A member of the RNA family "Enterococcus sRNA 68 (Lacto-3 RNA)" from Limosilactobacillus vaginalis, 117 nucleotides long. The family's consensus secondary structure is taken from published work. The family's RNA type in Rfam is small RNA. For this family Rfam cites "Whole-genome mapping of 5' RNA ends in bacteria by tagged sequencing: a comprehensive view in Enterococcus faecalis" (Innocenti et al., RNA, 2015).
RNA sequence: UGCGAUGAGUCGAGAGGUCUGGUAGCAACCCAAAUGGCUACCAUAAGACAUUUCGAACGUGGGGCACAUAACUCACCGGAUUGUGAGGUGCCUGGAAGUAGUCGGAGUGGACACCGA
Numbered sequence: 001u002g003c004g005a006u007g008a009g010u011c012g013a014g015a016g017g018u019c020u021g022g023u024a025g026c027a028a029c030c031c032a033a034a035u036g037g038c039u040a041c042c043a044u045a046a047g048a049c050a051u052u053u054c055g056a057a058c059g060u061g062g063g064g065c066a067c068a069u070a071a072c073u074c075a076c077c078g079g080a081u082u083g084u085g086a087g088g089u090g091c092c093u094g095g096a097a098g099u100a101g102u103c104g105g106a107g108u109g110g111a112c113a114c115c116g117a
Stems, first nucleotide, its partner, number of pairs: 017049004021042006063092005072087005102117004